[Rfam]
RNA sequence: UCGUACCGCUAGGGGUCCUGGCAGCCGCAACCGGCUGGCCGGGUGAGAAAUACCCUUGAACCUGAUCUGGAUAAUGCCAGCGAAGGGAAGCAACCGGCAGCAAGA
Dot-bracket structure: .......(((((((.((((((.................)))))......)..))))....(((...((((......))))...)))..)))..............
Numbered sequence: 001u002c003g004u005a006c007c008g009c010u011a012g013g014g015g016u017c018c019u020g021g022c023a024g025c026c027g028c029a030a031c032c033g034g035c036u037g038g039c040c041g042g043g044u045g046a047g048a049a050a051u052a053c054c055c056u057u058g059a060a061c062c063u064g065a066u067c068u069g070g071a072u073a074a075u076g077c078c079a080g081c082g083a084a085g086g087g088a089a090g091c092a093a094c095c096g097g098c099a100g101c102a103a104g105a
Stems, first nucleotide, its partner, number of pairs: 008091003011056004016050001017043005061086003067080004